[Rfam]
RNA sequence: UUGGGUACCAGUUCACCUUAAGGCACAAAUGUUACGAAAUUGCGAAAGCAAUUAUUUACAAUGCCUGAGUAAGUUCUGAGAUGCCGUUAUUUCGAAAGAAUAUGAGGCUUCCUCCAGAAAUCUAUUUCAUUCUGACUUAGAGAAGAGGAUUGAUUCAAUCUGAUCGUUAGAGUGAAAGUGAGAAGGGGGCUUGGCAUAGCAUAUUAAGUGCAAUAGGUGAUAUUCAAUUCAAUUCAGGCUACUCGGUAACCAA
Numbered sequence: 001u002u003g004g005g006u007a008c009c010a011g012u013u014c015a016c017c018u019u020a021a022g023g024c025a026c027a028a029a030u031g032u033u034a035c036g037a038a039a040u041u042g043c044g045a046a047a048g049c050a051a052u053u054a055u056u057u058a059c060a061a062u063g064c065c066u067g068a069g070u071a072a073g074u075u076c077u078g079a080g081a082u083g084c085c086g087u088u089a090u091u092u093c094g095a096a097a098g099a100a101u102a103u104g105a106g107g108c109u110u111c112c113u114c115c116a117g118a119a120a121u122c123u124a125u126u127u128c129a130u131u132c133u134g135a136c137u138u139a140g141a142g143a144a145g146a147g148g149a150u151u152g153a154u155u156c157a158a159u160c161u162g163a164u165c166g167u168u169a170g171a172g173u174g175a176a177a178g179u180g181a182g183a184a185g186g187g188g189g190c191u192u193g194g195c196a197u198a199g200c201a202u203a204u205u206a207a208g209u210g211c212a213a214u215a216g217g218u219g220a221u222a223u224u225c226a227a228u229u230c231a232a233u234u235c236a237g238g239c240u241a242c243u244c245g246g247u248a249a250c251c252a253a
Base pairs, nucleotide, nucleotide: 001253002252003251004250007247008246009245013220014219015218016217017216018215021066022065023064024063038053039052040051041050042049043048076237077236078235079234080233082196083195084194085193091100092099093098105192106191107190108189109188110187111186125177126176127175
Rfam assigns this 253-nucleotide RNA from Paramecium sonneborni to the family "Nuclear RNase P". The base pairs follow the family's consensus structure, which is taken from published work. Taxonomically the source falls in Paramecium (Eukaryota, Sar, Peniculida, Parameciidae). Ribonuclease P (RNase P) is a ubiquitous endoribonuclease, found in archaea, bacteria and eukarya as well as chloroplasts and mitochondria. Its best characterised activity is the generation of mature 5'-ends of tRNAs by cleaving the 5'-leader elements of precursor-tRNAs. Cellular RNase Ps are ribonucleoproteins. RNA from bacterial RNase Ps retains its catalytic activity in the absence of the protein subunit, i.e. it is a ribozyme. Isolated eukaryotic and archaeal RNase P RNA has not been shown to retain its catalytic function, but is still essential for the catalytic activity of the holoenzyme. Although the archaeal and eukaryotic holoenzyme s have a much greater protein content than the bacterial ones, the RNA cores from all the three lineages are homologous -- helices corresponding to P1, P2, P3, P4, and P10/11 are common to all cellular RNase P RNAs. Yet, there is considerable sequence variation, particularly among the eukaryotic RNAs.